The record is a 122-nucleotide RNA from Rotaria socialis, which matches "U5 spliceosomal RNA" in Rfam.
Rfam 15.1 lists 28,527 matches to the family in 2,489 species.
Lineage of the source: Eukaryota > Protostomia > Bdelloidea > Philodinida > Rotaria.

RNA sequence: UAACUCUGAUUCCGGAACAAUCACAAGAAAAUCUUUCGCCUUUUACUAAAGAUUUCUGUGUUUCGGAAUAAUUCAAUGAGUCUUAAAGACUAAUUUUUACUCGGCUUGUGUCAAACGGGCUU
Numbered sequence: 001u002a003a004c005u006c007u008g009a010u011u012c013c014g015g016a017a018c019a020a021u022c023a024c025a026a027g028a029a030a031a032u033c034u035u036u037c038g039c040c041u042u043u044u045a046c047u048a049a050a051g052a053u054u055u056c057u058g059u060g061u062u063u064c065g066g067a068a069u070a071a072u073u074c075a076a077u078g079a080g081u082c083u084u085a086a087a088g089a090c091u092a093a094u095u096u097u098u099a100c101u102c103g104g105c106u107u108g109u110g111u112c113a114a115a116c117g118g119g120c121u122u
Stems, first nucleotide, its partner, number of pairs: 003081004009069011029055008103121006